[Rfam]
RNA sequence: CCCCGGAUUCUCAUCCGGGGCUGUCGCAUUCCGUCGCGUUGCGACU
Numbered sequence: 001c002c003c004c005g006g007a008u009u010c011u012c013a014u015c016c017g018g019g020g021c022u023g024u025c026g027c028a029u030u031c032c033g034u035c036g037c038g039u040u041g042c043g044a045c046u
Stems, first nucleotide, its partner, number of pairs: 001020008033045005
The family of this 46-nucleotide sequence from Novipirellula maiorica is "Acido-Lenti-1 RNA". Rfam 15.1 lists 2,607 matches to the family in 171 species. By type it is a small RNA. A search with the family's covariance model found it, with a score of 41 bits.